[Rfam]
RNA: nhaA-I RNA
RNA sequence: GGGUGCAGUUCCAAGAACGGGGCGGGCAGGGCGUAGCGUUGGUCGGGCCGCCAGCG
Numbered sequence: 001g002g003g004u005g006c007a008g009u010u011c012c013a014a015g016a017a018c019g020g021g022g023c024g025g026g027c028a029g030g031g032c033g034u035a036g037c038g039u040u041g042g043u044c045g046g047g048c049c050g051c052c053a054g055c056g
Stems, first nucleotide, its partner, number of pairs: 005027002008023004037056007